[Rfam]
RNA sequence: GUGGCUUUACAUGCUUUAAAGAUUCAUGCUUUGUAUUAUAUAUACGUGAAGCUUGAUGAGAACAUAUUAGCCUACAUUAAAUUUAGUUCCCCUCGCUAUCCUGUUCUUCAAUUACAAUGAUGUUUCUCAGGACGUCGGUGAACAAUAGUU
Numbered sequence: 001g002u003g004g005c006u007u008u009a010c011a012u013g014c015u016u017u018a019a020a021g022a023u024u025c026a027u028g029c030u031u032u033g034u035a036u037u038a039u040a041u042a043u044a045c046g047u048g049a050a051g052c053u054u055g056a057u058g059a060g061a062a063c064a065u066a067u068u069a070g071c072c073u074a075c076a077u078u079a080a081a082u083u084u085a086g087u088u089c090c091c092c093u094c095g096c097u098a099u100c101c102u103g104u105u106c107u108u109c110a111a112u113u114a115c116a117a118u119g120a121u122g123u124u125u126c127u128c129a130g131g132a133c134g135u136c137g138g139u140g141a142a143c144a145a146u147a148g149u150u
Base pairs, nucleotide, nucleotide: 001075002074003072004071005070008066009065012062015060016059018057025055026054028052029051030050031049032048035047036046086143087142088141089140091138092137094134095133099132100131101130102129103128108120109119110118
RNA: Small nucleolar RNA snoR136
Organism: Brassica rapa